[Rfam]
RNA sequence: GCUGGGACCAGUUGGGACCAGUCAUGGGCAAAAUACUUAUUUUUUUGUCCAUUGUUGCAGUCUUCCUAGAGCAAAGUGGAGGUCUCUGUCUGGUUUAGGACAGCCAACUGAAUCGGAUCGUUCCCCUCCAUACACG
Numbered sequence: 001g002c003u004g005g006g007a008c009c010a011g012u013u014g015g016g017a018c019c020a021g022u023c024a025u026g027g028g029c030a031a032a033a034u035a036c037u038u039a040u041u042u043u044u045u046u047g048u049c050c051a052u053u054g055u056u057g058c059a060g061u062c063u064u065c066c067u068a069g070a071g072c073a074a075a076g077u078g079g080a081g082g083u084c085u086c087u088g089u090c091u092g093g094u095u096u097a098g099g100a101c102a103g104c105c106a107a108c109u110g111a112a113u114c115g116g117a118u119c120g121u122u123c124c125c126c127u128c129c130a131u132a133c134a135c136g
Stems, first nucleotide, its partner, number of pairs: 004066003009060001011058002025051005032044002078129005086120001088118003092114007

Notes
Shown here is a 136-nucleotide RNA sequence from Callaeas wilsoni, a member of the family "Small Cajal body specific RNA 3". The base pairs follow the family's consensus structure, which was predicted with RNAalifold. scaRNAs are a specific class of small nuclear RNAs which localise to the Cajal bodies and guide the modification of RNA polymerase II transcribed spliceosomal RNAs U1, U2, U4, U5 and U12. The family's RNA type in Rfam is small Cajal body RNA. The literature on the family includes a 2002 paper in EMBO J by Darzacq et al., "Cajal body-specific small nuclear RNAs: a novel class of 2'-O-methylation and pseudouridylation guide RNAs".